[Rfam]
RNA sequence: UCCCUCCAGAUCCCUUUCCCAUCAGAUCUGAAUACCGAUCUUGUGGUCGAAAAAGGAGGAAAAGCAAAUUUCAAGCUGGUCAUGGGCUCUCUGCAGGCACAUCCUGAUCUGAGAGGGGCCAGUGGGAAGACAGGC
Numbered sequence: 001u002c003c004c005u006c007c008a009g010a011u012c013c014c015u016u017u018c019c020c021a022u023c024a025g026a027u028c029u030g031a032a033u034a035c036c037g038a039u040c041u042u043g044u045g046g047u048c049g050a051a052a053a054a055g056g057a058g059g060a061a062a063a064g065c066a067a068a069u070u071u072c073a074a075g076c077u078g079g080u081c082a083u084g085g086g087c088u089c090u091c092u093g094c095a096g097g098c099a100c101a102u103c104c105u106g107a108u109c110u111g112a113g114a115g116g117g118g119c120c121a122g123u124g125g126g127a128a129g130a131c132a133g134g135c
Stems, first nucleotide, its partner, number of pairs: 003059005019046003023043001025040004076122006